[Rfam]
Overview: The record is a 105-nucleotide RNA from Cytophagaceae bacterium BCCC1, which matches "SAM-I/IV (S-adenosyl methionine) riboswitch aptamer" in Rfam. NCBI's taxonomy places the organism under Bacteria, Pseudomonadati, Cytophagia, Cytophagales, Cytophagaceae. The literature on the family includes a 2008 paper in RNA by Weinberg et al., "The aptamer core of SAM-IV riboswitches mimics the ligand-binding site of SAM-I riboswitches". It scores 48 bits against the family's covariance model.
RNA sequence: GCAGUACAUCAAGAGUUCCUGAUUUAUUAGGAAACCAACCGAGUACUUAGAAACACCGCGGUGGUAAAAAAGAUGUGGGUCGCCCGACCAAAAAAGUUUCGGCAA
Numbered sequence: 001g002c003a004g005u006a007c008a009u010c011a012a013g014a015g016u017u018c019c020u021g022a023u024u025u026a027u028u029a030g031g032a033a034a035c036c037a038a039c040c041g042a043g044u045a046c047u048u049a050g051a052a053a054c055a056c057c058g059c060g061g062u063g064g065u066a067a068a069a070a071a072g073a074u075g076u077g078g079g080u081c082g083c084c085c086g087a088c089c090a091a092a093a094a095a096g097u098u099u100c101g102g103c104a105a
Base pairs, nucleotide, nucleotide: 006076007075008074009073010072017032018031019030020029021028034065035064036063039061040060041059043056044055050100078089079088080087081086